The family of this 132-nucleotide RNA from Pipistrellus kuhlii is "Small nucleolar RNA SNORA22". A search with the family's covariance model found it, with a score of 97 bits. Gene Ontology terms of the family: RNA processing and nucleolus. The family's consensus secondary structure was predicted with RNAfold. From the family's description: ACA22 is a member of the H/ACA class of snoRNA that guide the sites of modification of uridines to pseudouridines. Rfam classes the family as an H/ACA-box small nucleolar RNA.
RNA sequence: UGGUGAGGCCACAAACCAAGUGUGCUUUAUGGUUCCCUUGGCUUUGACUCUGCUACAGCAAUGGCUGUUCUUUUCCUCUGUAGUGACGGGAUUAUUUAUCCUUUUAAAUGUAUUCAGGAAGUCAGCACACUA
Numbered sequence: 001u002g003g004u005g006a007g008g009c010c011a012c013a014a015a016c017c018a019a020g021u022g023u024g025c026u027u028u029a030u031g032g033u034u035c036c037c038u039u040g041g042c043u044u045u046g047a048c049u050c051u052g053c054u055a056c057a058g059c060a061a062u063g064g065c066u067g068u069u070c071u072u073u074u075c076c077u078c079u080g081u082a083g084u085g086a087c088g089g090g091a092u093u094a095u096u097u098a099u100c101c102u103u104u105u106a107a108a109u110g111u112a113u114u115c116a117g118g119a120a121g122u123c124a125g126c127a128c129a130c131u132a
Stems, first nucleotide, its partner, number of pairs: 003053002007051002014045001016041005022035001024033003055071001057069004077118004081110002084107001085105002088102004